Background
Shown here is a 184-nucleotide sequence from Chenopodium quinoa, a member of the family "U2 spliceosomal RNA". It scores 134 bits against the family's covariance model. The base pairs follow the family's consensus structure, which is taken from published work. The family's RNA type in Rfam is spliceosomal small nuclear RNA. U2 is a small nuclear RNA (snRNA) component of the spliceosome (involved in pre-mRNA splicing). Complementary binding between U2 snRNA (in an area lying towards the 5' end but 3' to hairpin I) and the branchpoint sequence (BPS) of the intron results the bulging out of an unpaired adenosine, on the BPS, which initiates a nucleophilic attack at the intronic 5' splice site, thus starting the first of two transesterification reactions that mediate splicing. For this family Rfam cites "The uRNA database" (Zwieb, Nucleic Acids Res, 1997).
[Rfam]
RNA sequence: AUACCUUUCUCGGCCUAUUGGCUAAGAUCAAGUGUAGUAUCUGUUAUCAGUUUAUUAUCUGAUAUUUGGGCCAAUACGAUAUUAAAUUUUUUUUAAGGGGGAAGAUCCACCACAGUAGCUUGCUGCUGGGAUCUUCAAGCGUCGCCCAUGCGUUGCACUACUGCACGGGCCUGGCGCACCCCAC
Number, nucleotide and partner (000 for none) at each position: 001a000002u000003a000004c000005c000006u000007u000008u027009c026010u025011c000012g023013g022014c021015c020016u000017a000018u000019u000020g015021g014022c013023u012024a000025a010026g009027a008028u000029c000030a000031a000032g000033u000034g000035u000036a000037g000038u000039a000040u000041c000042u000043g000044u000045u064046a063047u062048c061049a060050g059051u000052u000053u000054a000055u000056u000057a000058u000059c050060u049061g048062a047063u046064a045065u000066u074067u073068g072069g000070g000071c000072c068073a067074a066075u000076a000077c000078g000079a000080u000081a000082u000083u000084a000085a000086a000087u000088u000089u000090u000091u000092u000093u000094u000095a000096a000097g000098g000099g000100g000101g136102a135103a134104g133105a132106u131107c130108c129109a000110c000111c000112a000113c000114a000115g126116u125117a124118g123119c000120u000121u000122g000123c118124u117125g116126c115127u000128g000129g108130g107131a106132u105133c104134u103135u102136c101137a000138a000139g177140c176141g175142u174143c173144g172145c000146c168147c167148a000149u165150g164151c163152g000153u000154u000155g000156c000157a000158c000159u000160a000161c000162u000163g151164c150165a149166c000167g147168g146169g000170c000171c000172u144173g143174g142175c141176g140177c139178a000179c000180c000181c000182c000183a000184c000